[Rfam]
RNA sequence: CAAGUUAGGGGUACAUAUCUUGCCUAUGGCAUUUCCCUGGACCUAAGCAGUGACCUGAAAGAGUAGCGUCAAUACUUGGACCAGCAGCGCUGACUUCCCUGAUCAGGAUGGCGUUGCUGGU
Numbered sequence: 001c002a003a004g005u006u007a008g009g010g011g012u013a014c015a016u017a018u019c020u021u022g023c024c025u026a027u028g029g030c031a032u033u034u035c036c037c038u039g040g041a042c043c044u045a046a047g048c049a050g051u052g053a054c055c056u057g058a059a060a061g062a063g064u065a066g067c068g069u070c071a072a073u074a075c076u077u078g079g080a081c082c083a084g085c086a087g088c089g090c091u092g093a094c095u096u097c098c099c100u101g102a103u104c105a106g107g108a109u110g111g112c113g114u115u116g117c118u119g120g121u
Base pairs, nucleotide, nucleotide: 001078002077003076004075005074006072008070009044010043011042012041014039015038021031022030023029024028047067048066055063056062081120082119083118084117085116086115087114088113089112090111091110098107099106100105
RNA: Flavobacterium-1 RNA